[Rfam]
RNA sequence: GGUCAGCUGAUUAGACCUAAAAUAGUCGGUUCGUGGUGGUUAGUAACACACCUAAAAUUACUUA
Numbered sequence: 001g002g003u004c005a006g007c008u009g010a011u012u013a014g015a016c017c018u019a020a021a022a023u024a025g026u027c028g029g030u031u032c033g034u035g036g037u038g039g040u041u042a043g044u045a046a047c048a049c050a051c052c053u054a055a056a057a058u059u060a061c062u063u064a
Base pairs, nucleotide, nucleotide: 001017002016003015004014009027010026011025012024013023035052036051037050038049
Shown here is a 64-nucleotide RNA, a member of the family "GP20-b RNA". Rfam classes the family as a cis-regulatory element.